Shown here is a 144-nucleotide sequence from Mus spicilegus, a member of the family "Small nucleolar RNA SNORA48". Taxonomically the source falls in Mus (Eukaryota, Teleostomi, Amniota, Mus). The literature on the family includes a 1997 paper in J Mol Biol by Ofengand and Bakin, "Mapping to nucleotide resolution of pseudouridine residues in large subunit ribosomal RNAs from representative eukaryotes, prokaryotes, archaebacteria, mitochondria and chloroplasts". The family's consensus secondary structure was predicted with RNAalifold. Rfam 15.1 lists 2,109 matches to the family in 150 species. From the family's description: The snoRNA ACA 48 has been identified to guide pseudouridylation of the residue U3797 in the 28S rRNA subunit.

RNA sequence: CCCCACUGAAUAUGGGCAAAAAGACACAUUGUUUGUGAUGUUGUUCUUCUGUCAGUCAGGGGCUGAGCAGAUGGCAGUCUUUUGUUCAUCCUAGCUUGAUGCCUGGCUUGGUGGCCAAAACUAUUUUAUGCCUAGGACACAUAA
Numbered sequence: 001c002c003c004c005a006c007u008g009a010a011u012a013u014g015g016g017c018a019a020a021a022a023g024a025c026a027c028a029u030u031g032u033u034u035g036u037g038a039u040g041u042u043g044u045u046c047u048u049c050u051g052u053c054a055g056u057c058a059g060g061g062g063c064u065g066a067g068c069a070g071a072u073g074g075c076a077g078u079c080u081u082u083u084g085u086u087c088a089u090c091c092u093a094g095c096u097u098g099a100u101g102c103c104u105g106g107c108u109u110g111g112u113g114g115c116c117a118a119a120a121c122u123a124u125u126u127u128a129u130g131c132c133u134a135g136g137a138c139a140c141a142u143a144a
Stems, first nucleotide, its partner, number of pairs: 001062003006059003013054003019048002023042004083139005098132001100130001104128003109123002112120001

It is annotated as an H/ACA-box small nucleolar RNA.